[Rfam]
RNA: tRNA
RNA sequence: AUUCCUGUGGCGCAGUGGCUAGCGCGCCGUUCUUAUAAGACUCGUCAGAUUCUUAUGGCCUCAUCUGGUUAUGCGGAUGCCGUGGGUUCGAACCCCACCAGGAAUA
Numbered sequence: 001a002u003u004c005c006u007g008u009g010g011c012g013c014a015g016u017g018g019c020u021a022g023c024g025c026g027c028c029g030u031u032c033u034u035a036u037a038a039g040a041c042u043c044g045u046c047a048g049a050u051u052c053u054u055a056u057g058g059c060c061u062c063a064u065c066u067g068g069u070u071a072u073g074c075g076g077a078u079g080c081c082g083u084g085g086g087u088u089c090g091a092a093c094c095c096c097a098c099c100a101g102g103a104a105u106a
Base pairs, nucleotide, nucleotide: 001105002104003103004102005101006100007099010025011024012023013022027076028075029074030073082098083097084096085095086094